Shown here is a 264-nucleotide sequence from Desulforamulus reducens, a member of the family "Bacterial large signal recognition particle RNA". The source organism's lineage runs through Bacteria, Bacillati, Bacillota, Peptococcaceae and Desulforamulus reducens.
RNA sequence: CCGUGCUAGAUGGGGAGGUAGCGGUGCCCUGCACCAGCAAUCCGCUGUAGCUGGGUUGAAUUCCUACUCGAGGGUAUGACUUGUGAGGUCUGGUCAUCGUAAGGGGCGUUGACGACCGGGUCUUACGCAGCGUAGGCUCUCGAACCGUGUCAGGUCCUGACGGAAGCAGCACUAAGGGAAACCCUACGGGUGCCGUAAGAUAGCCUGGUCUGAGCAACCUGCGUUGGUUCGCUCGGAAGUUAUUACUCGACGGUAGGUGCACGG
Numbered sequence: 001c002c003g004u005g006c007u008a009g010a011u012g013g014g015g016a017g018g019u020a021g022c023g024g025u026g027c028c029c030u031g032c033a034c035c036a037g038c039a040a041u042c043c044g045c046u047g048u049a050g051c052u053g054g055g056u057u058g059a060a061u062u063c064c065u066a067c068u069c070g071a072g073g074g075u076a077u078g079a080c081u082u083g084u085g086a087g088g089u090c091u092g093g094u095c096a097u098c099g100u101a102a103g104g105g106g107c108g109u110u111g112a113c114g115a116c117c118g119g120g121u122c123u124u125a126c127g128c129a130g131c132g133u134a135g136g137c138u139c140u141c142g143a144a145c146c147g148u149g150u151c152a153g154g155u156c157c158u159g160a161c162g163g164a165a166g167c168a169g170c171a172c173u174a175a176g177g178g179a180a181a182c183c184c185u186a187c188g189g190g191u192g193c194c195g196u197a198a199g200a201u202a203g204c205c206u207g208g209u210c211u212g213a214g215c216a217a218c219c220u221g222c223g224u225u226g227g228u229u230c231g232c233u234c235g236g237a238a239g240u241u242a243u244u245a246c247u248c249g250a251c252g253g254u255a256g257g258u259g260c261a262c263g264g
Stems, first nucleotide, its partner, number of pairs: 001264006009057003012030004017025001019023001034054005063257006072248005078241005084235004092228001095226002098223003103219002106215002114210008122199006128190001131188005138179004147172004155164003

Pairs were carried over by alignment from the consensus structure, which is taken from published work. Rfam describes the family as follows. The signal recognition particle (SRP) is a universally conserved ribonucleoprotein involved in the co-translational targeting of proteins to membranes.